This 68-nucleotide RNA sequence from Paraburkholderia acidisoli belongs to the Rfam family "int-alpA RNA". Acidobacteria (1 example), Planctomycetes (1 example), Proteobacteria. It scores 60 bits against the family's covariance model. By type it is a small RNA. Taxonomically the source falls in Paraburkholderia (Bacteria, Pseudomonadati, Pseudomonadota, Burkholderiales). The base pairs follow the family's consensus structure, which is taken from published work.
RNA sequence: CCCGCACCUAGAUCGCGCGGUCGAAAAGCCAGUCCCUGUCUGGCCUGGUGCGGGCAUCAAAUACAGGG
Numbered sequence: 001c002c003c004g005c006a007c008c009u010a011g012a013u014c015g016c017g018c019g020g021u022c023g024a025a026a027a028g029c030c031a032g033u034c035c036c037u038g039u040c041u042g043g044c045c046u047g048g049u050g051c052g053g054g055c056a057u058c059a060a061a062u063a064c065a066g067g068g
Stems, first nucleotide, its partner, number of pairs: 001054008011022004028044005034068006